A member of the RNA family "che1 RNA" from Streptomyces pluripotens, 101 nucleotides long.
[Rfam]
RNA sequence: UGGACAGGGGGGUCUUCGCUGACCGGCGAAGCCUGUCCGACACGGUCGUGUGUGACGCCUGUCAGGCACGACCAGUGGUUGUCGCUCGGGGGUGAUCGCCG
Number, nucleotide and partner (000 for none) at each position: 001u039002g038003g037004a036005c035006a034007g033008g032009g000010g000011g000012g000013u000014c031015u030016u029017c028018g027019c026020u025021g000022a000023c000024c000025g020026g019027c018028g017029a016030a015031g014032c008033c007034u006035g005036u004037c003038c002039g001040a000041c000042a000043c000044g073045g072046u071047c070048g069049u068050g067051u066052g000053u000054g000055a000056c000057g000058c000059c000060u000061g000062u000063c000064a000065g000066g051067c050068a049069c048070g047071a046072c045073c044074a000075g000076u000077g000078g000079u000080u000081g000082u000083c000084g000085c000086u000087c000088g000089g000090g000091g000092g000093u000094g000095a000096u000097c000098g000099c000100c000101g000